RNA sequence: ACUUCCUAAGCCGGAACGAAAAGUUGAACGGUAGCGAUACUGCAAAACUUUUGGCUAUGUGGUUGUGAUGUUGUGUUUGCAAGUUGUCCGGGAGUUCCGGACAUAGUAGCUUAAGCUACUGUUUUUUUCACUUCCUGUACAUUUACCCUGUCUGUCCAUAGUGAUUUUUUGAAUGCACCGCCGAUUGCGGUGCUUUUUUUU
Numbered sequence: 001a002c003u004u005c006c007u008a009a010g011c012c013g014g015a016a017c018g019a020a021a022a023g024u025u026g027a028a029c030g031g032u033a034g035c036g037a038u039a040c041u042g043c044a045a046a047a048c049u050u051u052u053g054g055c056u057a058u059g060u061g062g063u064u065g066u067g068a069u070g071u072u073g074u075g076u077u078u079g080c081a082a083g084u085u086g087u088c089c090g091g092g093a094g095u096u097c098c099g100g101a102c103a104u105a106g107u108a109g110c111u112u113a114a115g116c117u118a119c120u121g122u123u124u125u126u127u128u129c130a131c132u133u134c135c136u137g138u139a140c141a142u143u144u145a146c147c148c149u150g151u152c153u154g155u156c157c158a159u160a161g162u163g164a165u166u167u168u169u170u171g172a173a174u175g176c177a178c179c180g181c182c183g184a185u186u187g188c189g190g191u192g193c194u195u196u197u198u199u200u201u
Base pairs, nucleotide, nucleotide: 009056010055011054012053015052016051021050022049023048024047025046029042030041031040032039033038085103086102087101088100089099090098091097105120106119107118108117109116110115140171141170175193176192177191178190179189180188181187
RNA: GcvB RNA
Organism: Morganella morganii